[Rfam]
RNA sequence: GAGCUAUGAAGACGACUUUAAAGGAGUCUGAGGUUCCACUGAAGACAUAAGAUCCAACUCUGAGCUCACUGUGCU
Number, nucleotide and partner (000 for none) at each position: 001g067002a066003g065004c064005u000006a000007u000008g000009a000010a000011g000012a000013c000014g000015a000016c000017u000018u000019u000020a000021a000022a000023g000024g000025a000026g000027u000028c000029u000030g000031a000032g000033g000034u000035u000036c000037c000038a000039c000040u000041g000042a000043a000044g000045a000046c000047a000048u000049a000050a000051g000052a000053u000054c000055c000056a000057a000058c000059u000060c000061u000062g000063a000064g004065c003066u002067c001068a000069c000070u000071g000072u000073g000074c000075u000
The record is a 75-nucleotide RNA from Nothoprocta ornata, which matches "Small nucleolar RNA SNORD19" in Rfam. For this family Rfam cites "RNomics: an experimental approach that identifies 201 candidates for novel, small, non-messenger RNAs in mouse" (Huttenhofer et al., EMBO J, 2001). A search with the family's covariance model found it, with a score of 52 bits. Clan: SNORD19 clan.